Background: Shown here is a 129-nucleotide sequence from Campylobacter pinnipediorum, a member of the family "purD RNA motif". The literature on the family includes a 2007 paper in Nucleic Acids Res by Weinberg et al., "Identification of 22 candidate structured RNAs in bacteria using the CMfinder comparative genomics pipeline". Taxonomically the source falls in Campylobacter pinnipediorum (Bacteria, Epsilonproteobacteria, Campylobacterales, Campylobacteraceae). By type it is a cis-regulatory element. Rfam links the family to the GO term regulation of gene expression.

RNA sequence: GUAUAGGUGCUCUGUGAUGUGGCUUUGUUUGAGUGUGUUUAACAUUAGAAGUUGCAACCUUUAAGCGCUUAUCUAUUUGCAAGAUUGGCUUUAAUUUGGGCCACUCUUUUAUGCAACGCUCAUUUGGGU
Number, nucleotide and partner (000 for none) at each position: 001g000002u000003a072004u071005a000006g069007g068008u067009g066010c065011u000012c000013u000014g000015u000016g000017a000018u056019g055020u054021g053022g000023c051024u050025u049026u048027g000028u000029u000030u000031g000032a000033g045034u044035g043036u042037g000038u000039u000040u000041a000042a036043c035044a034045u033046u000047a000048g026049a025050a024051g023052u000053u021054g020055c019056a018057a000058c000059c000060u000061u000062u000063a000064a000065g010066c009067g008068c007069u006070u000071a004072u003073c000074u000075a000076u000077u000078u000079g000080c000081a000082a000083g000084a000085u000086u103087g102088g101089c100090u099091u098092u000093a000094a000095u000096u000097u000098g091099g090100g089101c088102c087103a086104c000105u000106c000107u000108u000109u000110u000111a000112u000113g000114c000115a000116a000117c000118g000119c000120u000121c000122a000123u000124u000125u000126g000127g000128g000129u000